[Rfam]
RNA sequence: GGUAGUAGCAAAUACUCCAGCGAGGCCCUGGAGGACUGACGUGGAGAAGGGUUUCGUGUGAACAGCCGUUGCACACGAGUCAGUCGAUCCUAAGCCAUAGGCGAAAGCCGAUGUCGAUGCGGUGUAUCUUUCGGAGCCUGUCUAUUUAUAUAAAUAUAUAUUAUUAUUAUAUGUACAGAGAGAGAGACGCACACCCGUCGGGCGAAAGGGAAUCCGGUUCCUAUUCCGGAACCCGGCAGCGGAACCGUUAUUAAGUCGUGCCCUCAUUCAGAGAGUUCGUCGGGGCAACCCAAAAAGACCUGGAGACGCCGUCGGGAGAUCCGGGAAGAGUUUUCUUUUCUGCAUAAGCGCUCGAGUUCCAUGGAAUCCUCUAGCAGGGAGAUAUGGUUUGGAGCGCGAAGAGCACCGCAGUUGCGGCGGUGUCCGGAUCUUCCCCUCGGACCUUGAAAAUCCAGGAGAGGGCCACGUGGAGGCGUCGCGCCGGUUCGUACCCAUAUCCGCAGCAGGUCUCCAAGGUGAAGAGCCUCUAGUCGA
Numbered sequence: 001g002g003u004a005g006u007a008g009c010a011a012a013u014a015c016u017c018c019a020g021c022g023a024g025g026c027c028c029u030g031g032a033g034g035a036c037u038g039a040c041g042u043g044g045a046g047a048a049g050g051g052u053u054u055c056g057u058g059u060g061a062a063c064a065g066c067c068g069u070u071g072c073a074c075a076c077g078a079g080u081c082a083g084u085c086g087a088u089c090c091u092a093a094g095c096c097a098u099a100g101g102c103g104a105a106a107g108c109c110g111a112u113g114u115c116g117a118u119g120c121g122g123u124g125u126a127u128c129u130u131u132c133g134g135a136g137c138c139u140g141u142c143u144a145u146u147u148a149u150a151u152a153a154a155u156a157u158a159u160a161u162u163a164u165u166a167u168u169a170u171a172u173g174u175a176c177a178g179a180g181a182g183a184g185a186g187a188c189g190c191a192c193a194c195c196c197g198u199c200g201g202g203c204g205a206a207a208g209g210g211a212a213u214c215c216g217g218u219u220c221c222u223a224u225u226c227c228g229g230a231a232c233c234c235g236g237c238a239g240c241g242g243a244a245c246c247g248u249u250a251u252u253a254a255g256u257c258g259u260g261c262c263c264u265c266a267u268u269c270a271g272a273g274a275g276u277u278c279g280u281c282g283g284g285g286c287a288a289c290c291c292a293a294a295a296a297g298a299c300c301u302g303g304a305g306a307c308g309c310c311g312u313c314g315g316g317a318g319a320u321c322c323g324g325g326a327a328g329a330g331u332u333u334u335c336u337u338u339u340c341u342g343c344a345u346a347a348g349c350g351c352u353c354g355a356g357u358u359c360c361a362u363g364g365a366a367u368c369c370u371c372u373a374g375c376a377g378g379g380a381g382a383u384a385u386g387g388u389u390u391g392g393a394g395c396g397c398g399a400a401g402a403g404c405a406c407c408g409c410a411g412u413u414g415c416g417g418c419g420g421u422g423u424c425c426g427g428a429u430c431u432u433c434c435c436c437u438c439g440g441a442c443c444u445u446g447a448a449a450a451u452c453c454a455g456g457a458g459a460g461g462g463c464c465a466c467g468u469g470g471a472g473g474c475g476u477c478g479c480g481c482c483g484g485u486u487c488g489u490a491c492c493c494a495u496a497u498c499c500g501c502a503g504c505a506g507g508u509c510u511c512c513a514a515g516g517u518g519a520a521g522a523g524c525c526u527c528u529a530g531u532c533g534a
Base pairs, nucleotide, nucleotide: 015033016032017031018030019029020028034532035531036530037529043512044511045510046509049492050491054078055077056076057075058074059073063071064070085488086487087486089209090208094203095202096113097112098111100109101108102107121195122194123193124192125191213230214229215228216227217226233484234483235482236481271479273477274476275474276473282291283290284289299456300455301454302453303452304451309440310439311438314435315434316433317432318431321427322426323425325343327341328340329339348397349396350395351394352393359387360386361385362384363383367379368378369377370376404422405421406420407419408418409417498507499506514526515525516524517523
Dot-bracket structure: ..............((((((.......))))))((((.....((((..((...((((((...((.....)).))))))......(((.((...(((((.(((....))).))).......(((((.................................................................)))))......))....))...(((((........)))))..((((..................................(.((((.....(((....))).......((((((....(((..(((((..(((.(.(((.........))).)....(((((......(((((...((((.....))))...))))).....)))))......((((((.......))))))..)))...)))))..)))..........))))))................)).)).).)))).)))..)).....((......)).)))).((((.....))))..))))..
Rfam assigns this 534-nucleotide part of an RNA from Oryctes borbonicus to the family "Eukaryotic large subunit ribosomal RNA". Taxonomically the source falls in Oryctes (Eukaryota, Altocrustacea, Neuropteroidea, Scarabaeiformia).